Shown here is a 124-nucleotide sequence from Luteibacter anthropi, a member of the family "t44 RNA".
RNA sequence: GGCAUUCGCUUUUAACGCCACACACGCAUCGGCACCGCCUUCGGGGUGCCCUGCCAGACCGUCGCCGAGCGAAAGGCUCCGCGGUCAGGCCGGGUCGAAGCCGGGGAUGCGUGGAGGUCCCAAC
Dot-bracket structure: ......................((((((((....(((.(((((....((((........................................))))))))).))).))))))))...........
NCBI's taxonomy places the organism under Bacteria, Pseudomonadati, Pseudomonadota, Gammaproteobacteria, Luteibacter.